[Rfam]
RNA sequence: AAGACCCACUACUUAUGGGUCCUGGUUAAAAUCCAUUUCACUUGGGUUUUGCGUCAGGACCCAAGUCUAUUGGGUCUUUUGUCAGGACCCAAGGUUCUUGGGUCUU
Numbered sequence: 001a002a003g004a005c006c007c008a009c010u011a012c013u014u015a016u017g018g019g020u021c022c023u024g025g026u027u028a029a030a031a032u033c034c035a036u037u038u039c040a041c042u043u044g045g046g047u048u049u050u051g052c053g054u055c056a057g058g059a060c061c062c063a064a065g066u067c068u069a070u071u072g073g074g075u076c077u078u079u080u081g082u083c084a085g086g087a088c089c090c091a092a093g094g095u096u097c098u099u100g101g102g103u104c105u106u
Stems, first nucleotide, its partner, number of pairs: 001106008013094002016091009028078002031075005042064008

The record is a 106-nucleotide sequence from Populus deltoides, which matches "MIR6450 microRNA precursor family" in Rfam. The family has 2 seed sequences and 53 matches in Rfam 15.1. NCBI's taxonomy places the organism under Eukaryota, Streptophytina, Magnoliopsida, Pentapetalae, Populus. The base pairs follow the family's consensus structure, which was predicted with RNAalifold. Rfam links the family to the GO terms RISC complex and miRNA-mediated post-transcriptional gene silencing. A search with the family's covariance model found it, with a score of 73 bits.